[Rfam]
RNA: FMN riboswitch aptamer (RFN element)
Organism: Actinomyces glycerinitolerans
RNA sequence: AACGUGCUCCGGGGUCGGUGAAAGUCCGAACCGGCGGUGACAGUCCGCGACCCGGUUGUGUCCACCCGCAGGGUGGGUGCGGUCGGCUGAGCCGGUGGAAUUCCGGCACCGACGGUGAAAGUCCGGAUGGGAGGAGACACGUG
Number, nucleotide and partner (000 for none) at each position: 001a000002a000003c141004g140005u139006g138007c136008u135009c134010c133011g000012g000013g000014g000015u000016c028017g027018g026019u000020g000021a000022a000023a000024g000025u000026c018027c017028g016029a000030a122031c121032c111033g110034g048035c047036g046037g045038u000039g000040a000041c000042a000043g109044u108045c037046c036047g035048c034049g000050a000051c000052c086053c085054g084055g083056u082057u081058g080059u079060g078061u000062c000063c000064a000065c000066c000067c000068g000069c000070a000071g000072g000073g000074u000075g000076g000077g000078u060079g059080c058081g057082g056083u055084c054085g053086g052087c000088u000089g000090a000091g107092c106093c105094g104095g103096u000097g000098g000099a000100a000101u000102u000103c095104c094105g093106g092107c091108a044109c043110c033111g032112a000113c125114g124115g123116u000117g000118a000119a000120a000121g031122u030123c115124c114125g113126g000127a000128u000129g000130g000131g000132a000133g010134g009135a008136g007137a000138c006139a005140c004141g003142u000143g000